[Rfam]
RNA sequence: UCGGCCCCGGUUCACGCCCCGCAAACCCGCGGAGCGACCCGGCGCC
Numbered sequence: 001u002c003g004g005c006c007c008c009g010g011u012u013c014a015c016g017c018c019c020c021g022c023a024a025a026c027c028c029g030c031g032g033a034g035c036g037a038c039c040c041g042g043c044g045c046c
Base pairs, nucleotide, nucleotide: 003046004045005044007042008041009040010039015036016035017034019032020031021030022029